[Rfam]
The record is a 417-nucleotide RNA, which matches "Bacterial RNase P class A" in Rfam. It is annotated as a ribozyme. Gene Ontology terms of the family: ribonuclease P activity, dimeric ribonuclease P complex and tRNA processing. It scores 230 bits against the family's covariance model.
RNA sequence: CAAGCGGACCGGGUGACCGCCCUGGCGUCGGAGACGGUUGUCGGGGAGGAAAGUCCGGGCUCCACCGGGCAGGGUGCUGGGUAACCCCCAGGCUUUCGCAAUGGAUCAGUCCGGCGCGGAAGACGGAAAGUGGCACAGAAACAUACCGCCCCGGUGUCUCGACAUCGGGGUAAGGGUGAAAUCGGGCGGUAAGAGCGCCCGGUCGGCUGUGGCGACACACCGGCGGUCAAACCCCACCUGGAGCAAGGCCAAAUAGAGGGACUAUGAGCGUCCGGCUCGUCCCCGGGUUGGCUGCUUGACCACGGCGGUAACGCCGUCCCGCCCCGCGGGUUCCGACGCAAGUCGGGAGGCUAGAUAGAUGGUCACCAUCCCGAUUCUUUCGGGAUACAGAACCCGGCUUACAGGUCCGCAGGUCCU
Numbered sequence: 001c002a003a004g005c006g007g008a009c010c011g012g013g014u015g016a017c018c019g020c021c022c023u024g025g026c027g028u029c030g031g032a033g034a035c036g037g038u039u040g041u042c043g044g045g046g047a048g049g050a051a052a053g054u055c056c057g058g059g060c061u062c063c064a065c066c067g068g069g070c071a072g073g074g075u076g077c078u079g080g081g082u083a084a085c086c087c088c089c090a091g092g093c094u095u096u097c098g099c100a101a102u103g104g105a106u107c108a109g110u111c112c113g114g115c116g117c118g119g120a121a122g123a124c125g126g127a128a129a130g131u132g133g134c135a136c137a138g139a140a141a142c143a144u145a146c147c148g149c150c151c152c153g154g155u156g157u158c159u160c161g162a163c164a165u166c167g168g169g170g171u172a173a174g175g176g177u178g179a180a181a182u183c184g185g186g187c188g189g190u191a192a193g194a195g196c197g198c199c200c201g202g203u204c205g206g207c208u209g210u211g212g213c214g215a216c217a218c219a220c221c222g223g224c225g226g227u228c229a230a231a232c233c234c235c236a237c238c239u240g241g242a243g244c245a246a247g248g249c250c251a252a253a254u255a256g257a258g259g260g261a262c263u264a265u266g267a268g269c270g271u272c273c274g275g276c277u278c279g280u281c282c283c284c285g286g287g288u289u290g291g292c293u294g295c296u297u298g299a300c301c302a303c304g305g306c307g308g309u310a311a312c313g314c315c316g317u318c319c320c321g322c323c324c325c326g327c328g329g330g331u332u333c334c335g336a337c338g339c340a341a342g343u344c345g346g347g348a349g350g351c352u353a354g355a356u357a358g359a360u361g362g363u364c365a366c367c368a369u370c371c372c373g374a375u376u377c378u379u380u381c382g383g384g385a386u387a388c389a390g391a392a393c394c395c396g397g398c399u400u401a402c403a404g405g406u407c408c409g410c411a412g413g414u415c416c417u
Stems, first nucleotide, its partner, number of pairs: 001413001004410007011402001012367007020046008051400003055397005060243004068273002072239005077091005092124001093122007125234002130232002132228003146175002148171009183201006204223001206221001208219004247293004258283005266278004300350002